[Rfam]
The record is a 34-nucleotide RNA from Octodon degus, which matches "Iron response element I" in Rfam. On this family, see Hentze et al., Science 1987: "Identification of the iron-responsive element for the translational regulation of human ferritin mRNA". The match comes from Rfam's covariance-model search (40 bits).
RNA sequence: CUGUUUUUGCUUCAACAGUGUUUGGACGGGACAG
Numbered sequence: 001c002u003g004u005u006u007u008u009g010c011u012u013c014a015a016c017a018g019u020g021u022u023u024g025g026a027c028g029g030g031a032c033a034g
Stems, first nucleotide, its partner, number of pairs: 001034007009027001011026005016020001
Pairs were carried over by alignment from the consensus structure, which is taken from published work. The family's RNA type in Rfam is cis-regulatory element.